[Rfam]
RNA sequence: CAUCCCCUUUAAUAGCGAGCGGACCCUCAGUGCAUCACCGCGAGCCGCUCGUCUACACCGGGGGAGAGAGA
Numbered sequence: 001c002a003u004c005c006c007c008u009u010u011a012a013u014a015g016c017g018a019g020c021g022g023a024c025c026c027u028c029a030g031u032g033c034a035u036c037a038c039c040g041c042g043a044g045c046c047g048c049u050c051g052u053c054u055a056c057a058c059c060g061g062g063g064g065a066g067a068g069a070g071a
Base pairs, nucleotide, nucleotide: 003065004064005063006062007061008060015052016051017050018049019048020047021046022045
Shown here is a 71-nucleotide RNA from Trypanosoma cruzi, a member of the family "Trypanosomatid snoRNA TB10Cs1H1". Pairs were carried over by alignment from the consensus structure, which was predicted with WAR. The literature on the family includes a 2005 paper in RNA by Liang et al., "A genome-wide analysis of C/D and H/ACA-like small nucleolar RNAs in Trypanosoma brucei reveals a trypanosome-specific pattern of rRNA modification". The family has 4 seed sequences and 73 matches in Rfam 15.1. The family's RNA type in Rfam is H/ACA-box small nucleolar RNA.